[Rfam]
Nucleotides: 254
Stems, first nucleotide, its partner, number of pairs: 002254005008247005015206006024064006038052005070237002073235004085097002088094001102107001110181002117177006126170004136164004147157003208222006
Number, partner (000 for none) and nucleotide at each position: 001000c002254g003253a004252u005251g006250u007000c008247u009246u010245g011244u012243c013000a014000g015206c016205c017204u018203u019202c020201u021000c022000u023000a024064c025063u026062c027061g028060a029059a030000a031000a032000c033000a034000u035000g036000c037000g038052g039051a040050u041049c042048a043000c044000u045000u046000g047000u048042u049041g050040g051039u052038c053000a054000a055000c056000u057000c058000a059029u060028u061027c062026g063025g064024g065000a066000g067000g068000a069000a070237a071236g072000u073235c074234c075233c076232c077000g078000g079000a080000c081000c082000u083000a084000g085097g086096c087000g088094a089000g090000a091000a092000a093000g094088u095000g096086g097085c098000a099000a100000g101000u102107u103000a104000u105000g106000a107102g108000a109000u110181u111180c112000a113000c114000a115000c116000c117177c118176u119175g120174a121173c122172u123000c124000u125000a126170g127169u128168g129167g130000a131000u132000a133000u134000a135000a136164a137163g138162g139161c140000c141000a142000u143000g144000a145000a146000g147157a148156a149155c150000c151000u152000u153000g154000u155149g156148u157147u158000c159000c160000a161139g162138c163137u164136u165000a166000u167129c168128u169127g170126c171000g172122a173121g174120u175119c176118a177117g178000g179000c180111g181110a182000u183000a184000g185000u186000c187000a188000c189000a190000g191000c192000a193000c194000a195000g196000u197000c198000a199000a200000u201020a202019g203018a204017a205016g206015g207000a208222g209221c210220u211219g212218a213217u214000g215000u216000a217213a218212u219211c220210a221209g222208c223000c224000a225000a226000c227000u228000c229000a230000a231000c232076g233075g234074g235073g236071c237070u238000c239000a240000u241000u242000c243012g244011a245010c246009a247008a248000g249000a250006a251005c252004a253003u254002u